bZIP non canonical Hac1/Xbp1 intron: a 66-nucleotide RNA sequence from Daphnia pulex. The base pairs follow the family's consensus structure, which was predicted with RNAfold. The literature on the family includes a 2011 paper in RNA Biol by Hooks and Griffiths-Jones, "Conserved RNA structures in the non-canonical Hac1/Xbp1 intron". Rfam 15.1 lists 1,325 matches to the family in 1,320 species. The source organism's lineage runs through Eukaryota, Branchiopoda, Phyllopoda, Daphniidae and Daphnia. Rfam's curators put it in the seed alignment. bZIP intron RNA is a non-canonical intron that was first reported in HAC1 gene in yeast and XBP1 gene in Metazoa.
RNA sequence: GGAUGUAUCCUGUUAAGUCAGCCGCACUUAUUAAUGGACCUCUGCCGCAGGGACAGGGUUACAUCC
Numbered sequence: 001g002g003a004u005g006u007a008u009c010c011u012g013u014u015a016a017g018u019c020a021g022c023c024g025c026a027c028u029u030a031u032u033a034a035u036g037g038a039c040c041u042c043u044g045c046c047g048c049a050g051g052g053a054c055a056g057g058g059u060u061a062c063a064u065c066c
Base pairs, nucleotide, nucleotide: 001066002065003064004063005062007059008058009057010056014030015029016028017027018026039051040050041049
Overview
The family's RNA type in Rfam is small RNA.